[Rfam]
RNA sequence: ACCUGUUUGCCAACACUCUGGUGCCGAAUCAAAAAGAUUUUAUAUAUUUCUUUUUCGAUAUAUUCGGUUCCUAUUUUGGAGCAAACUAGAUUGAUUUAGCCAAUUACUCACCAUAAUAUUCGUGAUUUAUUUAAAAAAAAUUUUUUUUUUAGAUUAAGAUGAAUAUGAUGGUCCAUUUCAGUGGCGUAAAU
Numbered sequence: 001a002c003c004u005g006u007u008u009g010c011c012a013a014c015a016c017u018c019u020g021g022u023g024c025c026g027a028a029u030c031a032a033a034a035a036g037a038u039u040u041u042a043u044a045u046a047u048u049u050c051u052u053u054u055u056c057g058a059u060a061u062a063u064u065c066g067g068u069u070c071c072u073a074u075u076u077u078g079g080a081g082c083a084a085a086c087u088a089g090a091u092u093g094a095u096u097u098a099g100c101c102a103a104u105u106a107c108u109c110a111c112c113a114u115a116a117u118a119u120u121c122g123u124g125a126u127u128u129a130u131u132u133a134a135a136a137a138a139a140a141u142u143u144u145u146u147u148u149u150u151a152g153a154u155u156a157a158g159a160u161g162a163a164u165a166u167g168a169u170g171g172u173c174c175a176u177u178u179c180a181g182u183g184g185c186g187u188a189a190a191u
Stems, first nucleotide, its partner, number of pairs: 007084003020071002023068002026065004031048001099185003111171004116166008
The family of this 191-nucleotide sequence from Pachysolen tannophilus is "Small nucleolar RNA snR80".
The literature on the family includes a 2004 paper in Nucleic Acids Res by Schattner et al., "Genome-wide searching for pseudouridylation guide snoRNAs: analysis of the Saccharomyces cerevisiae genome".
Gene Ontology terms of the family: RNA processing and nucleolus.
A search with the family's covariance model found it, with a score of 74 bits.